[Rfam]
RNA: RAGATH-11 RNA
RNA sequence: AUUCUCUCAAUGAGAAUAAUUCUUGGUUUGUGGUUCCAAGAUAGUCUAAAUAGUUGUCGAGUUCGCAGCUUCGGCUCGGAUGAGUGGCGCUGUUUAUGAUGAACGUCCCACGGUAA
Numbered sequence: 001a002u003u004c005u006c007u008c009a010a011u012g013a014g015a016a017u018a019a020u021u022c023u024u025g026g027u028u029u030g031u032g033g034u035u036c037c038a039a040g041a042u043a044g045u046c047u048a049a050a051u052a053g054u055u056g057u058c059g060a061g062u063u064c065g066c067a068g069c070u071u072c073g074g075c076u077c078g079g080a081u082g083a084g085u086g087g088c089g090c091u092g093u094u095u096a097u098g099a100u101g102a103a104c105g106u107c108c109c110a111c112g113g114u115a116a
Stems, first nucleotide, its partner, number of pairs: 001017006021041006030111004044100003047096003056088004061081002067076003